[Rfam]
RNA sequence: CAUAAUUGCGGCGAUGGAGUUCGCCUUUAACUGCUUUAAGCUGAUGACUCCUACCUUUAA
Numbered sequence: 001c002a003u004a005a006u007u008g009c010g011g012c013g014a015u016g017g018a019g020u021u022c023g024c025c026u027u028u029a030a031c032u033g034c035u036u037u038a039a040g041c042u043g044a045u046g047a048c049u050c051c052u053a054c055c056u057u058u059a060a
Stems, first nucleotide, its partner, number of pairs: 010025004016051006033041003

This 60-nucleotide RNA from Heyndrickxia ginsengihumi belongs to the Rfam family "Fluoride riboswitch aptamer (crcB RNA motif)". Lineage of the source: Bacteria > Bacillati > Bacillota > Bacillaceae > Heyndrickxia.